Background: Rfam assigns this 79-nucleotide RNA from Neomonachus schauinslandi to the family "Small nucleolar RNA SNORD66". A reference for the family is Huttenhofer et al. (2001), "RNomics: an experimental approach that identifies 201 candidates for novel, small, non-messenger RNAs in mouse", EMBO J. Rfam's curators write: snoRNA HBII-142 is part of the C/D family of snoRNAs. It is the human orthologue of the mouse MBII-142 snoRNA and is predicted to guide 2'O-ribose methylation of small 18S rRNA at residue C1272. The source organism's lineage runs through Eukaryota, Vertebrata, Laurasiatheria, Phocidae and Neomonachus. Its family is annotated with nucleolus and RNA processing in the Gene Ontology.
RNA sequence: UUUCUCUGUAGAGAUGACCUCUCAUUUGUGCCACUGUGUCUGGGUCAUAGAAGCCCUUUGAUGGAACCUAAGAGAGAAA
Numbered sequence: 001u002u003u004c005u006c007u008g009u010a011g012a013g014a015u016g017a018c019c020u021c022u023c024a025u026u027u028g029u030g031c032c033a034c035u036g037u038g039u040c041u042g043g044g045u046c047a048u049a050g051a052a053g054c055c056c057u058u059u060g061a062u063g064g065a066a067c068c069u070a071a072g073a074g075a076g077a078a079a
Base pairs, nucleotide, nucleotide: 001079002078003077004076005075006074007073
Dot-bracket structure: (((((((.................................................................)))))))

By type it is a C/D-box small nucleolar RNA.